[Rfam]
RNA sequence: GGCGGGUCUCCCCGCAUUGUGAGGCGGUGAAUCUGGUCAGGUCCGGAAGGAAGCAGCCACAGCCGAUUCUUGCAAGUGCCGGGGGUCAGGCUCGCCACC
Numbered sequence: 001g002g003c004g005g006g007u008c009u010c011c012c013c014g015c016a017u018u019g020u021g022a023g024g025c026g027g028u029g030a031a032u033c034u035g036g037u038c039a040g041g042u043c044c045g046g047a048a049g050g051a052a053g054c055a056g057c058c059a060c061a062g063c064c065g066a067u068u069c070u071u072g073c074a075a076g077u078g079c080c081g082g083g084g085g086u087c088a089g090g091c092u093c094g095c096c097a098c099c
Base pairs, nucleotide, nucleotide: 004093005092006091007090008089009085010084011083012082013081014080015076017075018074019073020072021071022070023067025065026064027063028062034059035058036057037056042051043050044049
RNA: Bacterial small signal recognition particle RNA
Organism: Denitratisoma oestradiolicum